[Rfam]
The family of this 96-nucleotide sequence from Pseudomonas sp. URIL14HWK12:I9 is "Pseudomon-Rho RNA".

RNA sequence: UUCGGGUUCGCGCUGUUAUCUUCAGUGCCCUUCGCAAGUCGCCGCCGACACAUUCCAAGUCGAAUACCCGCGAUCCAGUCGCCUCCCCGGCGCGGC
Numbered sequence: 001u002u003c004g005g006g007u008u009c010g011c012g013c014u015g016u017u018a019u020c021u022u023c024a025g026u027g028c029c030c031u032u033c034g035c036a037a038g039u040c041g042c043c044g045c046c047g048a049c050a051c052a053u054u055c056c057a058a059g060u061c062g063a064a065u066a067c068c069c070g071c072g073a074u075c076c077a078g079u080c081g082c083c084u085c086c087c088c089g090g091c092g093c094g095g096c
Stems, first nucleotide, its partner, number of pairs: 010028006038096004043092005070082005
Dot-bracket structure: .........((((((.......)))))).........((((.(((((......................(((((...))))).....)))))))))